HDV ribozyme from F. prausnitzii: a 74-nucleotide sequence from Rodentolepis nana. Its family is annotated with catalytic activity in the Gene Ontology. The family has 48 seed sequences and 3,803 matches in Rfam 15.1. A search with the family's covariance model found it, with a score of 48 bits. For this family Rfam cites "Widespread occurrence of self-cleaving ribozymes" (Webb et al., Science, 2009).
[Rfam]
RNA sequence: GCGGCGCGUGCGAUAGACUUACCUCCACGUGGUGCGCCCUGGGCAACGUAUUCUCAUACGGCCAAAAAGUCUAU
Dot-bracket structure: (.(((((.............(((.......)))))))).)......(((((....)))))..............